This 202-nucleotide sequence from Nitrosomonas europaea belongs to the Rfam family "Proteobacterial sRNA psRNA2".
By type it is a small RNA.
NCBI's taxonomy places the organism under Bacteria, Pseudomonadati, Nitrosomonadales, Nitrosomonadaceae, Nitrosomonas europaea.
For this family Rfam cites "Computational prediction and transcriptional analysis of sRNAs in Nitrosomonas europaea" (Gvakharia et al., FEMS Microbiol Lett, 2010).
RNA sequence: GGAUUACUCCUUUACGCUUUCGCGUUUGGUUGAUAAAGAUUCGCACCUCUAUCAAACUGGGUAAUCCCACCUCUUGGCAAGACCUGCUGUCAGAUCAAAUCUGAACUACUACAAAUAAAUUGUGGUUUAUAACCGCAAUAUUGUUUCUUUCCUUAAUCCAAAGGAAAAAUAAUGUUGGUAACUUUUAUCAGCUAUUUAGUAA
Numbered sequence: 001g002g003a004u005u006a007c008u009c010c011u012u013u014a015c016g017c018u019u020u021c022g023c024g025u026u027u028g029g030u031u032g033a034u035a036a037a038g039a040u041u042c043g044c045a046c047c048u049c050u051a052u053c054a055a056a057c058u059g060g061g062u063a064a065u066c067c068c069a070c071c072u073c074u075u076g077g078c079a080a081g082a083c084c085u086g087c088u089g090u091c092a093g094a095u096c097a098a099a100u101c102u103g104a105a106c107u108a109c110u111a112c113a114a115a116u117a118a119a120u121u122g123u124g125g126u127u128u129a130u131a132a133c134c135g136c137a138a139u140a141u142u143g144u145u146u147c148u149u150u151c152c153u154u155a156a157u158c159c160a161a162a163g164g165a166a167a168a169a170u171a172a173u174g175u176u177g178g179u180a181a182c183u184u185u186u187a188u189c190a191g192c193u194a195u196u197u198a199g200u201a202a
Base pairs, nucleotide, nucleotide: 001067002066003065004064005063006062007061009060010059014025015024016023017022028058029057030056031055032053033052034051035050037048038047069200070199076152077151081147082146089106090105091103092102093101094100095099108144109143111141113139171193173191179187180186